[Rfam]
RNA sequence: UGGCGCCCAAUGUGGGGCCUGGAUACCAGGGGACAACGUGAGGAUCGGACGAUGAAGAAAGAAGGGAUGCACCCAUUCAAAUAGUUUGGAGAUGUCGCGGUAGCCUGCUGUGACUGAGCAGACAGGUAAGUUGGUCAUUCAAUCAUGGGGCAAGAAUUGAGUCAGCAUCAGAAAUAUGUAAUACAGUUAAAAGAAGCUUUACAGGCAAGAGGAAUAAAGAUUACAACUGAGGAUUUAUUUCAUUUCUUUGAUUUUGUAAAAGACAUCUGCCCAU
Numbered sequence: 001u002g003g004c005g006c007c008c009a010a011u012g013u014g015g016g017g018c019c020u021g022g023a024u025a026c027c028a029g030g031g032g033a034c035a036a037c038g039u040g041a042g043g044a045u046c047g048g049a050c051g052a053u054g055a056a057g058a059a060a061g062a063a064g065g066g067a068u069g070c071a072c073c074c075a076u077u078c079a080a081a082u083a084g085u086u087u088g089g090a091g092a093u094g095u096c097g098c099g100g101u102a103g104c105c106u107g108c109u110g111u112g113a114c115u116g117a118g119c120a121g122a123c124a125g126g127u128a129a130g131u132u133g134g135u136c137a138u139u140c141a142a143u144c145a146u147g148g149g150g151c152a153a154g155a156a157u158u159g160a161g162u163c164a165g166c167a168u169c170a171g172a173a174a175u176a177u178g179u180a181a182u183a184c185a186g187u188u189a190a191a192a193g194a195a196g197c198u199u200u201a202c203a204g205g206c207a208a209g210a211g212g213a214a215u216a217a218a219g220a221u222u223a224c225a226a227c228u229g230a231g232g233a234u235u236u237a238u239u240u241c242a243u244u245u246c247u248u249u250g251a252u253u254u255u256g257u258a259a260a261a262g263a264c265a266u267c268u269g270c271c272c273a274u
Base pairs, nucleotide, nucleotide: 006031007030008029012026013025014024037051038050039049086126087125088123093118096112097111098110099109100108136150138149139148140147141146158201159200160199161197162196209249210248211247212246213245214244218236219235220234221233222232259274262271264269
RNA: Mason-Pfizer monkey virus packaging signal